[Rfam]
RNA sequence: UGCAAUGAUGGUGUAAUUUGCGUCUUACCUGGUAUUCAGCGACAGUUGCCUGCUGUCAUAAAGCUGGUGCCAAGGGGUGACGAUAAUACAAGUCUGAGCA
Numbered sequence: 001u002g003c004a005a006u007g008a009u010g011g012u013g014u015a016a017u018u019u020g021c022g023u024c025u026u027a028c029c030u031g032g033u034a035u036u037c038a039g040c041g042a043c044a045g046u047u048g049c050c051u052g053c054u055g056u057c058a059u060a061a062a063g064c065u066g067g068u069g070c071c072a073a074g075g076g077g078u079g080a081c082g083a084u085a086a087u088a089c090a091a092g093u094c095u096g097a098g099c100a
Stems, first nucleotide, its partner, number of pairs: 001100003021082004030072005039064002041057005
A member of the RNA family "Small nucleolar RNA SNORD16" from Xenopus tropicalis, 100 nucleotides long. The family has 5 seed sequences and 1,321 matches in Rfam 15.1. By type it is a C/D-box small nucleolar RNA. The match comes from Rfam's covariance-model search (108 bits).